[Rfam]
RNA sequence: GCACUCUGCUAGGGGAGCCGGAAACGGCUGAGACUGAACCUUUGUUCUACACCCUUGGAACCUGAUCUGGAUGAUGCCAGCGUAGGGAAGCAGGCUUGCGAAACG
Numbered sequence: 001g002c003a004c005u006c007u008g009c010u011a012g013g014g015g016a017g018c019c020g021g022a023a024a025c026g027g028c029u030g031a032g033a034c035u036g037a038a039c040c041u042u043u044g045u046u047c048u049a050c051a052c053c054c055u056u057g058g059a060a061c062c063u064g065a066u067c068u069g070g071a072u073g074a075u076g077c078c079a080g081c082g083u084a085g086g087g088a089a090g091c092a093g094g095c096u097u098g099c100g101a102a103a104c105g
Stems, first nucleotide, its partner, number of pairs: 006093005011055004017028004036047004061086004067080004
This 105-nucleotide RNA from Fictibacillus enclensis belongs to the Rfam family "TPP riboswitch aptamer (THI element)".
Pairs were carried over by alignment from the consensus structure, which is taken from published work.
The source organism's lineage runs through Bacteria, Bacillota, Caryophanales, Fictibacillaceae and Fictibacillus.
A search with the family's covariance model found it, with a score of 77 bits.
Its family is annotated with thiamine pyrophosphate binding in the Gene Ontology.